This 95-nucleotide RNA from Brucella intermedia belongs to the Rfam family "Selenocysteine transfer RNA". The match comes from Rfam's covariance-model search (71 bits). NCBI's taxonomy places the organism under Bacteria, Pseudomonadati, Pseudomonadota, Brucellaceae, Brucella intermedia.
RNA sequence: GGAAGGGAUGCAUGCCCGGUGGCAUGUCCGGACUUCAAAUCCGGGAGGGGGGGCCGAUAGACGGUCUUUGGUGGGUUCGACUCCCAUUCUCUUCC
Numbered sequence: 001g002g003a004a005g006g007g008a009u010g011c012a013u014g015c016c017c018g019g020u021g022g023c024a025u026g027u028c029c030g031g032a033c034u035u036c037a038a039a040u041c042c043g044g045g046a047g048g049g050g051g052g053g054c055c056g057a058u059a060g061a062c063g064g065u066c067u068u069u070g071g072u073g074g075g076u077u078c079g080a081c082u083c084c085c086a087u088u089c090u091c092u093u094c095c
Stems, first nucleotide, its partner, number of pairs: 001095008011026006027045006047069005072086004